[Rfam]
RNA sequence: GGAGGUUGGCGGUGGACGUGCCACUCGCCAACCGGGUCAGGUCCGGAAGGAAGCAGCCCCAACGAGCCUCGGCUCGGGUCACAUGUCAGCCUCCCAC
Numbered sequence: 001g002g003a004g005g006u007u008g009g010c011g012g013u014g015g016a017c018g019u020g021c022c023a024c025u026c027g028c029c030a031a032c033c034g035g036g037u038c039a040g041g042u043c044c045g046g047a048a049g050g051a052a053g054c055a056g057c058c059c060c061a062a063c064g065a066g067c068c069u070c071g072g073c074u075c076g077g078g079u080c081a082c083a084u085g086u087c088a089g090c091c092u093c094c095c096a097c
Base pairs, nucleotide, nucleotide: 003092004091005090006089007088012082013081014080017076018075020073021072022071024066025065026064027063034059035058036057037056042051043050044049

Rfam assigns this 97-nucleotide RNA sequence from Hartmannibacter diazotrophicus to the family "Bacterial small signal recognition particle RNA". Rfam classes the family as a non-coding RNA gene. Rfam describes the family as follows. The signal recognition particle (SRP) is a universally conserved ribonucleoprotein involved in the co-translational targeting of proteins to membranes.